[Rfam]
RNA: U11 spliceosomal RNA
Organism: Nasonia vitripennis
RNA sequence: AAAAAGGGUACUCGCUACUUCGAUAGCGCGUCGAUCCGCAAUAUUGUGGAGCGGCGGGGUAUGGCCAUCAAGACAUACCCAGUAUGUAAUUUUUGUAACCGAGGAGGCUGUGGGCUGCCAAAUGCACUAACGCCUCC
Numbered sequence: 001a002a003a004a005a006g007g008g009u010a011c012u013c014g015c016u017a018c019u020u021c022g023a024u025a026g027c028g029c030g031u032c033g034a035u036c037c038g039c040a041a042u043a044u045u046g047u048g049g050a051g052c053g054g055c056g057g058g059g060u061a062u063g064g065c066c067a068u069c070a071a072g073a074c075a076u077a078c079c080c081a082g083u084a085u086g087u088a089a090u091u092u093u094u095g096u097a098a099c100c101g102a103g104g105a106g107g108c109u110g111u112g113g114g115c116u117g118c119c120a121a122a123u124g125c126a127c128u129a130a131c132g133c134c135u136c137c
Stems, first nucleotide, its partner, number of pairs: 008085005013028005029056005035050006057080007105135004110131002113128002116126003